[Rfam]
RNA: U8 small nucleolar RNA
Organism: Anabarilius grahami
RNA sequence: AUGUCAGUGAGGUUUAGCUUUACUUGUUAUCUUAGAAAUAAGAUUAUAGAAUAUGGUGAUUGGAUUCUGUGAGUAUGUGAUUAUAUUCCUUAUUUGUUUAGAGCUUGCAAUCCUUUUAUGAAUCCUGUCUGAU
Numbered sequence: 001a002u003g004u005c006a007g008u009g010a011g012g013u014u015u016a017g018c019u020u021u022a023c024u025u026g027u028u029a030u031c032u033u034a035g036a037a038a039u040a041a042g043a044u045u046a047u048a049g050a051a052u053a054u055g056g057u058g059a060u061u062g063g064a065u066u067c068u069g070u071g072a073g074u075a076u077g078u079g080a081u082u083a084u085a086u087u088c089c090u091u092a093u094u095u096g097u098u099u100a101g102a103g104c105u106u107g108c109a110a111u112c113c114u115u116u117u118a119u120g121a122a123u124c125c126u127g128u129c130u131g132a133u
Stems, first nucleotide, its partner, number of pairs: 025046002030043005072090002075087001078083001094122002098118001100116003
Dot-bracket structure: ........................((...(((((....))))).)).........................((.(..(....)...).))...((..(.(((...........))).)..))...........